[Rfam]
RNA sequence: CAGUGUCUGUGAUGUUUUCUUACCUACAUUGGUUGAUGUUCCUUGAGAGAAACCCAAACACUGAGACACUG
Numbered sequence: 001c002a003g004u005g006u007c008u009g010u011g012a013u014g015u016u017u018u019c020u021u022a023c024c025u026a027c028a029u030u031g032g033u034u035g036a037u038g039u040u041c042c043u044u045g046a047g048a049g050a051a052a053c054c055c056a057a058a059c060a061c062u063g064a065g066a067c068a069c070u071g
Stems, first nucleotide, its partner, number of pairs: 001071002004068004
This 71-nucleotide sequence from Eubucco bourcierii belongs to the Rfam family "Small nucleolar RNA SNORD34". On this family, see Galardi et al., Mol Cell Biol 2002: "Purified box C/D snoRNPs are able to reproduce site-specific 2'-O-methylation of target RNA in vitro". The family has 14 seed sequences and 1,319 matches in Rfam 15.1. From the family's description: snoRNA U34 is found in intron 5 of the ribosomal protein L13a gene in humans. NCBI's taxonomy places the organism under Eukaryota, Deuterostomia, Theropoda, Piciformes, Eubucco.